[Rfam]
RNA sequence: CUCACAGAUUUUAUUGGCAUUCUGUCCACCUCCUUUCCUAAUUUCUUUCAUUUUCUUUUCUGUAUAUAACAUAUAUACAUAUUGCUAUUACUAUAUGAUCUAUGGAGGAGGUGGGCAUACUGCCAACUGAGUUCUGUUGG
Dot-bracket structure: ..........(..((((((...((((((((((((((...................................................................))))))))))))))...))))))...)..........
Numbered sequence: 001c002u003c004a005c006a007g008a009u010u011u012u013a014u015u016g017g018c019a020u021u022c023u024g025u026c027c028a029c030c031u032c033c034u035u036u037c038c039u040a041a042u043u044u045c046u047u048u049c050a051u052u053u054u055c056u057u058u059u060c061u062g063u064a065u066a067u068a069a070c071a072u073a074u075a076u077a078c079a080u081a082u083u084g085c086u087a088u089u090a091c092u093a094u095a096u097g098a099u100c101u102a103u104g105g106a107g108g109a110g111g112u113g114g115g116c117a118u119a120c121u122g123c124c125a126a127c128u129g130a131g132u133u134c135u136g137u138u139g140g
Stems, first nucleotide, its partner, number of pairs: 011130001014126006023117014